[Rfam]
RNA sequence: UCCAGAAGAAGAAAGUAUGAUAAAAAAAAGAAAGUGUUUUAGACCACUUUAAAAAACAUUUACUUA
Dot-bracket structure: .............((...............((((((........))))))........))......
Rfam assigns this 66-nucleotide RNA sequence from Oryzias melastigma to the family "Small nucleolar RNA U49". Gene Ontology terms of the family: nucleolus and RNA processing. For this family Rfam cites "Multiple snoRNA gene clusters from Arabidopsis" (Brown et al., RNA, 2001). By type it is a C/D-box small nucleolar RNA.